[Rfam]
RNA sequence: GGUCUUGCGCUUUCGCCCCGCGACACCUAGAUUGAUCCCGUUCCGCAAGGGACUAUGGGUGUAGACGGGCCAACUAGGCUGGAUCGGACGGGGGUGCGAAUCCCCCCACCUCCACCAUUUCUCCUGGGCUAACAGGAGUGCGGGGGUGAAUUAGGGUCGACGAACGGUUGAAUGGGUACUUGCAUCUCGGUUGGACGCAGCCGUUAUCUGCUCAAAUGUACAGUUGCCAACGACAACCGUGCUCCGGUGGCUCUGGCUGCGUAAGCAGCUCGGGUACCGAAACCUAAAGUCCUUACGCUUAGCCGCUUAAGGCGGGGCUCGCAGGUGCCUGGCAACAGAAACCUGCACU
Numbered sequence: 001g002g003u004c005u006u007g008c009g010c011u012u013u014c015g016c017c018c019c020g021c022g023a024c025a026c027c028u029a030g031a032u033u034g035a036u037c038c039c040g041u042u043c044c045g046c047a048a049g050g051g052a053c054u055a056u057g058g059g060u061g062u063a064g065a066c067g068g069g070c071c072a073a074c075u076a077g078g079c080u081g082g083a084u085c086g087g088a089c090g091g092g093g094g095u096g097c098g099a100a101u102c103c104c105c106c107c108a109c110c111u112c113c114a115c116c117a118u119u120u121c122u123c124c125u126g127g128g129c130u131a132a133c134a135g136g137a138g139u140g141c142g143g144g145g146g147u148g149a150a151u152u153a154g155g156g157u158c159g160a161c162g163a164a165c166g167g168u169u170g171a172a173u174g175g176g177u178a179c180u181u182g183c184a185u186c187u188c189g190g191u192u193g194g195a196c197g198c199a200g201c202c203g204u205u206a207u208c209u210g211c212u213c214a215a216a217u218g219u220a221c222a223g224u225u226g227c228c229a230a231c232g233a234c235a236a237c238c239g240u241g242c243u244c245c246g247g248u249g250g251c252u253c254u255g256g257c258u259g260c261g262u263a264a265g266c267a268g269c270u271c272g273g274g275u276a277c278c279g280a281a282a283c284c285u286a287a288a289g290u291c292c293u294u295a296c297g298c299u300u301a302g303c304c305g306c307u308u309a310a311g312g313c314g315g316g317g318c319u320c321g322c323a324g325g326u327g328c329c330u331g332g333c334a335a336c337a338g339a340a341a342c343c344u345g346c347a348c349u
Stems, first nucleotide, its partner, number of pairs: 040053005057187005067180002069177003079167001082165001084163003090106005107148007188203004194213002197211003315330004321346006

The family of this 349-nucleotide RNA from Rhodobacter capsulatus is "Alphaproteobacteria transfer-messenger RNA". It is annotated as a non-coding RNA gene. A reference for the family is Williams (2002), "The tmRNA Website: invasion by an intron", Nucleic Acids Res. Pairs were carried over by alignment from the consensus structure, which is taken from published work. Rfam describes the family as follows. Bacterial tmRNA, also known as 10Sa RNA or SsrA, is named for its dual tRNA and mRNA-like properties. Its role is to liberate the mRNA from a stalled ribosome. To accomplish this part of the tmRNA is used as a reading frame that ends in a translation stop signal. The broken mRNA is replaced in the ribosome by the tmRNA and translation of the tmRNA leads to addition of a proteolysis tag to the incomplete protein enabling recognition by a protease.